[Rfam]
RNA: Glycine riboswitch aptamer
Organism: Rossellomorea vietnamensis
RNA sequence: AUGAUGACAAGGGGAGAGACUGUGCAUACAGCGCCGAAGGAGCAAGCACGUUUCCGUGUGAAUCUCUCAGGCAAAAAGACUCUUGUUGGACG
Numbered sequence: 001a002u003g004a005u006g007a008c009a010a011g012g013g014g015a016g017a018g019a020c021u022g023u024g025c026a027u028a029c030a031g032c033g034c035c036g037a038a039g040g041a042g043c044a045a046g047c048a049c050g051u052u053u054c055c056g057u058g059u060g061a062a063u064c065u066c067u068c069a070g071g072c073a074a075a076a077a078g079a080c081u082c083u084u085g086u087u088g089g090a091c092g
Stems, first nucleotide, its partner, number of pairs: 006087008020031004033072003036068002040066003046059004